[Rfam]
RNA: Glycine riboswitch aptamer
Organism: Sphingomonas melonis
RNA sequence: UGGGCAUGCGCGGGAGAGAGCCCCUCACGAAAGGGGCCGCCGAAGGAGCAACCACCCCGGAAUCUCUCAGGCAAACGGACCGCGCAGGCCUU
Numbered sequence: 001u002g003g004g005c006a007u008g009c010g011c012g013g014g015a016g017a018g019a020g021c022c023c024c025u026c027a028c029g030a031a032a033g034g035g036g037c038c039g040c041c042g043a044a045g046g047a048g049c050a051a052c053c054a055c056c057c058c059g060g061a062a063u064c065u066c067u068c069a070g071g072c073a074a075a076c077g078g079a080c081c082g083c084g085c086a087g088g089c090c091u092u
Stems, first nucleotide, its partner, number of pairs: 007086007020037004039072003042068002046066003052060002